Shown here is a 126-nucleotide RNA from Heterocephalus glaber, a member of the family "Small nucleolar RNA SNORA77". A reference for the family is Schattner et al. (2006), "A computational screen for mammalian pseudouridylation guide H/ACA RNAs", RNA. The organism belongs to Heterocephalus, within Eukaryota. Rfam classes the family as an H/ACA-box small nucleolar RNA. ACA63 (SNORA77) is a member of the H/ACA class of snoRNAs that guide the sites of modification of uridines to pseudouridines. This snoRNA was identified by computational screening and its expression in mouse experimentally verified by Northern blot and primer extension analysis. ACA63 is proposed to guide the pseudouridylation of 18S rRNA U814.
RNA sequence: ACAGACUCACACUGCACCUGGCUGCAGCCCCCAGGCAGGUGGGUUUUCUGUCUGCCAGAGAACCUUCCAGGGAGCUGUGGCAGCCUUCACCUGCUGAGGCUGAUGCAGUUUCCAGGGAACAUGGAA
Numbered sequence: 001a002c003a004g005a006c007u008c009a010c011a012c013u014g015c016a017c018c019u020g021g022c023u024g025c026a027g028c029c030c031c032c033a034g035g036c037a038g039g040u041g042g043g044u045u046u047u048c049u050g051u052c053u054g055c056c057a058g059a060g061a062a063c064c065u066u067c068c069a070g071g072g073a074g075c076u077g078u079g080g081c082a083g084c085c086u087u088c089a090c091c092u093g094c095u096g097a098g099g100c101u102g103a104u105g106c107a108g109u110u111u112c113c114a115g116g117g118a119a120c121a122u123g124g125a126a
Base pairs, nucleotide, nucleotide: 002054003053004052005051006050015041016040017039018038019037020036022034023033024032067117068116071113072112073111074109075108076107077106078105079104083101085099086098